Record summary:
Actinobacteria sRNA Ms_IGR-5: a 197-nucleotide sequence from Streptomyces finlayi. The literature on the family includes a 2013 paper in RNA by Li et al., "Identification of small RNAs in Mycobacterium smegmatis using heterologous Hfq". By type it is a small RNA. The base pairs follow the family's consensus structure.

[Rfam]
RNA sequence: ACACAGAAGGGAGGUGCGCCGGAAGUGAUUUCUUUUCGGACUCGUGAGGUGACUGCGGGCUGACGCCCGUUCGUCGCGCUCUUUGCAGUGCGGGCCGGUCACCGGCCCAAUCCCAAGCAGUCACCGACCCGCAGGCUCGCCGGUAAGUCCGGCCGGCCCCUCCGCGAGGAGGGACCGGAGCCUGCGGGUUUCUGCGU
Numbered sequence: 001a002c003a004c005a006g007a008a009g010g011g012a013g014g015u016g017c018g019c020c021g022g023a024a025g026u027g028a029u030u031u032c033u034u035u036u037c038g039g040a041c042u043c044g045u046g047a048g049g050u051g052a053c054u055g056c057g058g059g060c061u062g063a064c065g066c067c068c069g070u071u072c073g074u075c076g077c078g079c080u081c082u083u084u085g086c087a088g089u090g091c092g093g094g095c096c097g098g099u100c101a102c103c104g105g106c107c108c109a110a111u112c113c114c115a116a117g118c119a120g121u122c123a124c125c126g127a128c129c130c131g132c133a134g135g136c137u138c139g140c141c142g143g144u145a146a147g148u149c150c151g152g153c154c155g156g157c158c159c160c161u162c163c164g165c166g167a168g169g170a171g172g173g174a175c176c177g178g179a180g181c182c183u184g185c186g187g188g189u190u191u192c193u194g195c196g197u
Stems, first nucleotide, its partner, number of pairs: 014056003058108001059106004067098003071093003126190012139157006